[Rfam]
RNA sequence: ACCUAGCCCCUCGAAUAGCUUCGUAUAAUCCCAAUGAUACGGUUUGGGAGUUUCUACCAAGAGCCACAAAUUCUUGAUUAUGAAGUCUGUAACUUUAUGC
Numbered sequence: 001a002c003c004u005a006g007c008c009c010c011u012c013g014a015a016u017a018g019c020u021u022c023g024u025a026u027a028a029u030c031c032c033a034a035u036g037a038u039a040c041g042g043u044u045u046g047g048g049a050g051u052u053u054c055u056a057c058c059a060a061g062a063g064c065c066a067c068a069a070a071u072u073c074u075u076g077a078u079u080a081u082g083a084a085g086u087c088u089g090u091a092a093c094u095u096u097a098u099g100c
Stems, first nucleotide, its partner, number of pairs: 018086008029049006058076006
Purine riboswitch aptamer: a 100-nucleotide RNA sequence from Shewanella sediminis. The match comes from Rfam's covariance-model search (68 bits). NCBI's taxonomy places the organism under Bacteria, Pseudomonadota, Gammaproteobacteria, Shewanellaceae, Shewanella sediminis.